[Rfam]
RNA: Bacillaceae-1 RNA
Organism: Bacillus sp. J14TS2
RNA sequence: UCGAGAAGCUCAAAGGCUAAAUUCGCGCCGUCCUGGCGGCAGACUCAAACGCGACGUCCUGUCGCUUCGUCUGCACUAGUACUUCCUGUACGUCGCAACGCCUUUCUGACCACCAUCCUGUUGG
Numbered sequence: 001u002c003g004a005g006a007a008g009c010u011c012a013a014a015g016g017c018u019a020a021a022u023u024c025g026c027g028c029c030g031u032c033c034u035g036g037c038g039g040c041a042g043a044c045u046c047a048a049a050c051g052c053g054a055c056g057u058c059c060u061g062u063c064g065c066u067u068c069g070u071c072u073g074c075a076c077u078a079g080u081a082c083u084u085c086c087u088g089u090a091c092g093u094c095g096c097a098a099c100g101c102c103u104u105u106c107u108g109a110c111c112a113c114c115a116u117c118c119u120g121u122u123g124g
Stems, first nucleotide, its partner, number of pairs: 012105006025096003029092003110124003114120001
Dot-bracket structure: ...........((((((.......(((.(((..........................................................))).)))...))))))....(((.(.....).)))